[Rfam]
RNA sequence: UAACUAAAUUAUCGCCGAGCUAUGUAUUCUAAGGGCCUGACCUAUGAAUGCUCAGCCGUGGCCACGGCCACCAGGGUUAACCGGGAAACGGGUUAGCCUCCCGACUUUGGAAAGGUGAACAUGCUUGAAGAUU
Numbered sequence: 001u002a003a004c005u006a007a008a009u010u011a012u013c014g015c016c017g018a019g020c021u022a023u024g025u026a027u028u029c030u031a032a033g034g035g036c037c038u039g040a041c042c043u044a045u046g047a048a049u050g051c052u053c054a055g056c057c058g059u060g061g062c063c064a065c066g067g068c069c070a071c072c073a074g075g076g077u078u079a080a081c082c083g084g085g086a087a088a089c090g091g092g093u094u095a096g097c098c099u100c101c102c103g104a105c106u107u108u109g110g111a112a113a114g115g116u117g118a119a120c121a122u123g124c125u126u127g128a129a130g131a132u133u
Stems, first nucleotide, its partner, number of pairs: 012118005019056003024051006033043003058071005074099009084089001100110002